[Rfam]
Shown here is an 86-nucleotide sequence, a member of the family "RAGATH-35 RNA". The base pairs follow the family's consensus structure, which is taken from published work. The family's RNA type in Rfam is small RNA. Rfam's curators put it in the seed alignment.
RNA sequence: AUUGGAUGAGCAACAGUAAAAUACUGUUUCGGGAUGGCUCGUCAAAACUCAUCAGCGGUUUUCUUUCCCUUAUCCGUAUGAGUGAU
Number, nucleotide and partner (000 for none) at each position: 001a000002u000003u000004g000005g043006a042007u041008g040009a039010g038011c037012a000013a027014c026015a025016g024017u000018a000019a000020a000021a000022u000023a000024c016025u015026g014027u013028u000029u000030c000031g000032g000033g000034a000035u000036g000037g011038c010039u009040c008041g007042u006043c005044a000045a000046a000047a000048c000049u000050c000051a000052u000053c000054a000055g000056c000057g000058g000059u000060u000061u000062u000063c000064u000065u000066u000067c000068c000069c000070u000071u000072a000073u000074c000075c000076g000077u000078a000079u000080g000081a000082g000083u000084g000085a000086u000